[Rfam]
RNA sequence: AACUUAUUAAGAGAAGUGGAGGGACACGGCCCUGAGAAACUUCAGCAACCGGCGAUGCAUACGCACGGUGCUACUACCAACGAGAUACUCGAAUGAUAAGUA
Numbered sequence: 001a002a003c004u005u006a007u008u009a010a011g012a013g014a015a016g017u018g019g020a021g022g023g024a025c026a027c028g029g030c031c032c033u034g035a036g037a038a039a040c041u042u043c044a045g046c047a048a049c050c051g052g053c054g055a056u057g058c059a060u061a062c063g064c065a066c067g068g069u070g071c072u073a074c075u076a077c078c079a080a081c082g083a084g085a086u087a088c089u090c091g092a093a094u095g096a097u098a099a100g101u102a
Base pairs, nucleotide, nucleotide: 002101003100004099005098006097007096008095013043014042015041016040017039021032022031023030028078029077044072045071046070047069049068050067051064053063054062076094081091082090083089084088
Shown here is a 102-nucleotide sequence from Staphylococcus haemolyticus, a member of the family "SAM riboswitch aptamer (S box leader)". Rfam describes the family as follows. The SAM riboswitch is found upstream of a number of genes which code for proteins involved in methionine or cysteine biosynthesis in Gram-positive bacteria. Lineage of the source: Bacteria > Bacillati > Bacillota > Staphylococcus > Staphylococcus haemolyticus. The base pairs follow the family's consensus structure, which is taken from published work. The sequence is in the family's curated seed alignment.